[Rfam]
RNA: Small nucleolar RNA Z107/R87
RNA sequence: GAUCGCUAUGAUGACUCACGAAAUUCAAGCUCAACAGACCGGAAUGCAGGGUUUUUCUUAUACAGAAAUACUUUGCGUGUCGAUAUUCCCGCUGAACUGAGUGAUC
Numbered sequence: 001g002a003u004c005g006c007u008a009u010g011a012u013g014a015c016u017c018a019c020g021a022a023a024u025u026c027a028a029g030c031u032c033a034a035c036a037g038a039c040c041g042g043a044a045u046g047c048a049g050g051g052u053u054u055u056u057c058u059u060a061u062a063c064a065g066a067a068a069u070a071c072u073u074u075g076c077g078u079g080u081c082g083a084u085a086u087u088c089c090c091g092c093u094g095a096a097c098u099g100a101g102u103g104a105u106c
Base pairs, nucleotide, nucleotide: 001106002105003104004103005102006101